[Rfam]
RNA sequence: AAAGGAGGAAUAAUGCCCUCUUGAUAGAACAAGAAUUUGGUUAUUGCUCCCUUACUU
Numbered sequence: 001a002a003a004g005g006a007g008g009a010a011u012a013a014u015g016c017c018c019u020c021u022u023g024a025u026a027g028a029a030c031a032a033g034a035a036u037u038u039g040g041u042u043a044u045u046g047c048u049c050c051c052u053u054a055c056u057u
Base pairs, nucleotide, nucleotide: 001053002052004050005049006048007047009045010044011043012042013041014040019034020033021032022031023030